Small nucleolar RNA SNORA77: a 133-nucleotide RNA sequence from Psilopogon haemacephalus. On this family, see Schattner et al., RNA 2006: "A computational screen for mammalian pseudouridylation guide H/ACA RNAs". NCBI's taxonomy places the organism under Eukaryota, Deuterostomia, Sauria, Coelurosauria, Psilopogon. By type it is an H/ACA-box small nucleolar RNA. From the family's description: ACA63 (SNORA77) is a member of the H/ACA class of snoRNAs that guide the sites of modification of uridines to pseudouridines. This snoRNA was identified by computational screening and its expression in mouse experimentally verified by Northern blot and primer extension analysis.
RNA sequence: GCAGACUCACUCUGUACUGAACUGCAGCCUUCAGUUCAGGUGCUUUUCCUGUCUGCAAGAGUAGUGGCUCACAGGAGUGGCGACUGCCUUCUUACUCGUAGGAGGCUGUUGCAACAGCUGUGGGGACAUUGCU
Dot-bracket structure: ((((((.......(((((((.(((.......))).))).)))).......))))))...........(((((((..((.(((...((((.............))))...))).))..))))))).........